Shown here is a 265-nucleotide sequence from Anoxynatronum buryatiense, a member of the family "Bacterial large signal recognition particle RNA". Gene Ontology terms of the family: SRP-dependent cotranslational protein targeting to membrane, signal sequence recognition and signal recognition particle, plasma membrane targeting. It is annotated as a non-coding RNA gene. The signal recognition particle (SRP) is a universally conserved ribonucleoprotein involved in the co-translational targeting of proteins to membranes. For this family Rfam cites "SRPDB: Signal Recognition Particle Database" (Rosenblad et al., Nucleic Acids Res, 2003). The match comes from Rfam's covariance-model search (204 bits). The source organism's lineage runs through Bacteria, Bacillati, Bacillota, Eubacteriales and Anoxynatronum.
RNA sequence: CUGUGCUAGAUGGGGAGGUAGCGGUGCCCUGUUGCCUGCAAUCCGCUAUAGCAGGAUCGAAUUCCCCGCCGAGGCCCUGUGCUUGUGGCGCUGCCUCCGGCACGUGGUGAUGAGGACUGGGUCCCGUGCAACGGAAGCUCAUGAAUCCCGUCAGGUCCGGAAGGAAGCAGCGGUAAGUGAUCCCUUUCGUGUGUUGCGGGUCAGCCUGGUCUGAGCCGGCGACCGGAGUACCGGCUGUGAGGCAUGGUCAGAGUGGGGUGCACAG
Number, nucleotide and partner (000 for none) at each position: 001c265002u264003g263004u262005g261006c260007u000008a000009g058010a057011u056012g030013g029014g028015g027016a000017g025018g000019u023020a000021g000022c000023g019024g000025u017026g000027c015028c014029c013030u012031g000032u000033u000034g000035c055036c054037u053038g052039c051040a000041a000042u000043c000044c000045g000046c000047u000048a000049u000050a000051g039052c038053a037054g036055g035056a011057u010058c009059g000060a000061a000062u000063u000064c258065c257066c256067c255068g254069c253070c000071g000072a000073g249074g248075c247076c246077c000078u000079g000080u244081g243082c242083u241084u240085g238086u237087g236088g235089c234090g000091c000092u230093g229094c000095c000096u227097c226098c225099g224100g223101c000102a000103c000104g220105u219106g217107g216108u215109g000110a000111u000112g000113a000114g212115g211116a210117c209118u208119g207120g206121g205122u204123c200124c199125c198126g197127u196128g195129c191130a190131a000132c189133g188134g187135a186136a185137g182138c000139u180140c179141a178142u177143g000144a000145a000146u000147c000148c173149c172150g171151u170152c000153a000154g000155g000156u165157c164158c163159g000160g000161a000162a000163g158164g157165a156166a000167g000168c000169a000170g151171c150172g149173g148174u000175a000176a000177g142178u141179g140180a139181u000182c137183c000184c000185u136186u135187u134188c133189g132190u130191g129192u000193g000194u000195u128196g127197c126198g125199g124200g123201u000202c000203a000204g122205c121206c120207u119208g118209g117210u116211c115212u114213g000214a000215g108216c107217c106218g000219g105220c104221g000222a000223c100224c099225g098226g097227a096228g000229u093230a092231c000232c000233g000234g089235c088236u087237g086238u085239g000240a084241g083242g082243c081244a080245u000246g076247g075248u074249c073250a000251g000252a000253g069254u068255g067256g066257g065258g064259u000260g006261c005262a004263c003264a002265g001